[Rfam]
RNA sequence: GAAAGGCGGGAGUGAUCCUGCUGGGCGUCGAAAGAGCCCCAAUUAGA
Numbered sequence: 001g002a003a004a005g006g007c008g009g010g011a012g013u014g015a016u017c018c019u020g021c022u023g024g025g026c027g028u029c030g031a032a033a034g035a036g037c038c039c040c041a042a043u044u045a046g047a
Base pairs, nucleotide, nucleotide: 005022006021007020008019009018010017011016023039024038025037026036
S4-Clostridia ribosomal protein leader: a 47-nucleotide sequence. By type it is a cis-regulatory leader. The literature on the family includes a 2020 paper in BMC Microbiol by Eckert and Weinberg, "Discovery of 20 novel ribosomal leader candidates in bacteria and archaea".